Overview: The family of this 121-nucleotide RNA sequence from Pseudozyma hubeiensis is "Small nucleolar RNA Z13/snr52". Pairs were carried over by alignment from the consensus structure, which was predicted with PFOLD. The source organism's lineage runs through Eukaryota, Opisthokonta, Basidiomycota, Ustilaginales and Pseudozyma hubeiensis. By type it is a C/D-box small nucleolar RNA.
RNA sequence: UUCUCUACUGUGAUGAACCAUUUACGGAUGUAAAACUGUUCUCCUUCGGGGGAACUUGUCAUUUGUCCGAGAGCGCAAAACCAUGUGGAUGUUUCCGUUGCCUUCCUACUGAUCUACGAGG
Numbered sequence: 001u002u003c004u005c006u007a008c009u010g011u012g013a014u015g016a017a018c019c020a021u022u023u024a025c026g027g028a029u030g031u032a033a034a035a036c037u038g039u040u041c042u043c044c045u046u047c048g049g050g051g052g053a054a055c056u057u058g059u060c061a062u063u064u065g066u067c068c069g070a071g072a073g074c075g076c077a078a079a080a081c082c083a084u085g086u087g088g089a090u091g092u093u094u095c096c097g098u099u100g101c102c103u104u105c106c107u108a109c110u111g112a113u114c115u116a117c118g119a120g121g
Stems, first nucleotide, its partner, number of pairs: 003120003025097004
Rfam links the family to the GO terms RNA processing and nucleolus.